RNA sequence: AUACUUACCUGGCGGGGAGAUACCAUGAUCACGAAGGUGGUUCACCCAGGGCGAGGCUCGGCCAUUGCACCGGUCAUGCUGACCCCUGCGAAUUCCCCAAAUGUGGGAAUCUCGACCAUAAUUUCUGUUAGUGGGGACUGCGUUCGCGCUCUCCCCUG
Numbered sequence: 001a002u003a004c005u006u007a008c009c010u011g012g013c014g015g016g017g018a019g020a021u022a023c024c025a026u027g028a029u030c031a032c033g034a035a036g037g038u039g040g041u042u043c044a045c046c047c048a049g050g051g052c053g054a055g056g057c058u059c060g061g062c063c064a065u066u067g068c069a070c071c072g073g074u075c076a077u078g079c080u081g082a083c084c085c086c087u088g089c090g091a092a093u094u095c096c097c098c099a100a101a102u103g104u105g106g107g108a109a110u111c112u113c114g115a116c117c118a119u120a121a122u123u124u125c126u127g128u129u130a131g132u133g134g135g136g137a138c139u140g141c142g143u144u145c146g147c148g149c150u151c152u153c154c155c156c157u158g
Stems, first nucleotide, its partner, number of pairs: 012117001014116001015047003019043002022041005048087004053083001055080003060075004089114003092110003096106002133156005140149003
The family of this 158-nucleotide RNA from Anguilla anguilla is "U1 spliceosomal RNA". Its family is annotated with U1 snRNP, pre-mRNA 5'-splice site binding and mRNA 5'-splice site recognition in the Gene Ontology.